Notes: A member of the RNA family "mir-9195 microRNA precursor family" from Myotis brandtii, 87 nucleotides long. The base pairs follow the family's consensus structure, which was predicted with RNAalifold. The organism belongs to Myotis, within Eukaryota. Rfam links the family to the GO terms RISC complex and miRNA-mediated post-transcriptional gene silencing.
RNA sequence: AGAGGCCCUCCGCAGCCAGGGUGGAACGCUUGCCUCAUUGCCACGGCGACGAAGCAAGCAUUCCACCAGGCUACUCAUGCUGCCCAC
Number, nucleotide and partner (000 for none) at each position: 001a000002g000003a000004g084005g083006c082007c000008c000009u000010c000011c000012g074013c000014a072015g071016c070017c069018a000019g000020g067021g066022u065023g064024g063025a062026a061027c000028g059029c058030u057031u056032g055033c054034c000035u000036c000037a000038u049039u048040g047041c046042c000043a000044c000045g000046g041047c040048g039049a038050c000051g000052a000053a000054g033055c032056a031057a030058g029059c028060a000061u026062u025063c024064c023065a022066c021067c020068a000069g017070g016071c015072u014073a000074c012075u000076c000077a000078u000079g000080c000081u000082g006083c005084c004085c000086a000087c000